[Rfam]
RNA: Small nucleolar RNA SNORD10
Organism: Atractosteus spatula
Nucleotides: 143
Base pairs, nucleotide, nucleotide: 001143002142003141004140045103046102047101048100049099050098051097052096053095
Number, partner (000 for none) and nucleotide at each position: 001143u002142g003141u004140g005000a006000a007000u008000g009000a010000u011000g012000a013000u014000c015000c016000c017000c018000a019000u020000g021000c022000g023000u024000g025000u026000c027000a028000a029000c030000u031000g032000a033000u034000c035000u036000c037000a038000g039000a040000g041000c042000c043000u044000g045103c046102u047101u048100c049099a050098g051097c052096u053095c054000c055000u056000g057000u058000c059000c060000c061000c062000u063000c064000g065000c066000u067000g068000g069000c070000g071000u072000u073000c074000u075000g076000u077000c078000g079000g080000g081000u082000g083000a084000a085000g086000g087000u088000g089000u090000g091000a092000u093000c094000a095053g096052g097051g098050c099049u100048g101047g102046a103045g104000g105000g106000c107000u108000c109000u110000g111000g112000g113000g114000c115000u116000g117000u118000g119000a120000u121000c122000a123000u124000a125000g126000c127000u128000u129000u130000u131000u132000a133000g134000a135000c136000u137000g138000a139000c140004c141003g142002c143001a